Nucleotides: 097
Base pairs, nucleotide, nucleotide: 001096002095003094004093
Number, partner (000 for none) and nucleotide at each position: 001096u002095g003094g004093c005000a006000g007000u008000g009000a010000u011000g012000a013000u014000a015000a016000a017000a018000a019000g020000g021000u022000u023000a024000u025000u026000u027000g028000g029000u030000u031000g032000a033000u034000u035000a036000u037000g038000a039000u040000u041000c042000u043000u044000a045000a046000u047000g048000c049000c050000a051000u052000u053000u054000a055000a056000g057000g058000a059000u060000c061000a062000a063000a064000c065000c066000g067000u068000g069000a070000u071000g072000a073000c074000c075000u076000u077000a078000u079000u080000u081000a082000u083000g084000c085000g086000u087000g088000u089000c090000u091000g092000a093004g094003c095002c096001a097000a

This 97-nucleotide RNA from Miscanthus lutarioriparius belongs to the Rfam family "small nucleolar RNA snoR126".
The source organism's lineage runs through Eukaryota, Euphyllophyta, Spermatophyta, Magnoliopsida and Miscanthus.
Rfam classes the family as a C/D-box small nucleolar RNA.
Its family is annotated with RNA processing and nucleolus in the Gene Ontology.